Shown here is a 136-nucleotide sequence from Drosophila willistoni, a member of the family "Drosophila small cajal body-specific RNA PsiU2-38.40.4". It is annotated as a small Cajal body RNA.
RNA sequence: AUGACAGCAACAAGAAGGUGUUCAAGUCUAAUGAACUUAUUUGAACGCUGAUACAAUCCUGUCAGAUUAAAAAAUAUGCCAAGAUCAGUUCAGUUUAAUGAAGUCUAUAAACUGGUUUACACGUGGCAGGACAUGA
Numbered sequence: 001a002u003g004a005c006a007g008c009a010a011c012a013a014g015a016a017g018g019u020g021u022u023c024a025a026g027u028c029u030a031a032u033g034a035a036c037u038u039a040u041u042u043g044a045a046c047g048c049u050g051a052u053a054c055a056a057u058c059c060u061g062u063c064a065g066a067u068u069a070a071a072a073a074a075u076a077u078g079c080c081a082a083g084a085u086c087a088g089u090u091c092a093g094u095u096u097a098a099u100g101a102a103g104u105c106u107a108u109a110a111a112c113u114g115g116u117u118u119a120c121a122c123g124u125g126g127c128a129g130g131a132c133a134u135g136a
Base pairs, nucleotide, nucleotide: 004062005061006060007059009057017049018048019047020046021045022044023043024042025041026040030037078127079126080125081124087118088117090115091114092113093112094111095110096109097108
It scores 112 bits against the family's covariance model. The source organism's lineage runs through Eukaryota, Eumetazoa, Panarthropoda, Drosophilini and Sophophora.